[Rfam]
RNA sequence: CUUGGUUAUGGUGAUAUGGUGCCAGCAACAGUUAUGGGUAAAGUUGUUGGUGGCGUUUGUUCCCUUAGUGGUGUUUUGGUAAUUGCACUUCCAGUUCCGGUAAGUUUUAUCGUUUCAAU
Number, nucleotide and partner (000 for none) at each position: 001c000002u118003u000004g116005g115006u000007u000008a113009u112010g111011g110012u000013g108014a107015u000016a105017u000018g097019g096020u000021g095022c094023c000024a000025g000026c000027a000028a000029c000030a000031g000032u000033u000034a000035u000036g000037g077038g076039u000040a074041a000042a000043g000044u000045u000046g000047u000048u000049g063050g062051u000052g000053g000054c000055g000056u000057u000058u000059g000060u000061u000062c050063c049064c000065u000066u000067a000068g000069u000070g000071g000072u000073g000074u040075u000076u038077u037078g000079g000080u000081a000082a000083u000084u000085g000086c000087a000088c000089u000090u000091c000092c000093a000094g022095u021096u019097c018098c000099g000100g000101u000102a000103a000104g000105u016106u000107u014108u013109a000110u011111c010112g009113u008114u000115u005116c004117a000118a002119u000